[Rfam]
The record is a 180-nucleotide RNA sequence from Pseudomonas asplenii, which matches "Pseudomonas sRNA P1" in Rfam. The match comes from Rfam's covariance-model search (148 bits). By type it is a non-coding RNA gene. From the family's description: This small RNA (sRNA) was computationally identified in the genome of the opportunistic pathogen Pseudomonas aeruginosa and its expression verified by northern blot analysis. There appears to be two related copies of P1 sRNA in the P.aeruginosa PA01 genome and both copies appear to be located upstream of predicted glutamine synthetase genes. This sRNA appears to be conserved amongst several Pseudomonas species. P1 has a predicted Rho independent terminator at the 3' end but the function of P1 is unknown. Taxonomically the source falls in Pseudomonas (Bacteria, Pseudomonadati, Pseudomonadota, Pseudomonadales).
RNA sequence: ACCCCGGUAUUAUUGCUGUUAUGGGUUUCAAUCGAGCUUAGCCUCGUUCAUUUUUUUACACAACACCCCCCUAAAAAAUACGAUAUCGCCCGCUCAAGCCUGCGGUGCCUCUGGUUUUUUCCAGGGAAGAAAUGCCCCAAAAAGCCCCAAAAAAGCCACUCGGGCGCUUUUUCAGGGCGC
Dot-bracket structure: ......................((((((.....(.(....((.(.(((...(((((((.............)))))))...))))..)).).)..))))))............................................................(.((.(.......).)).)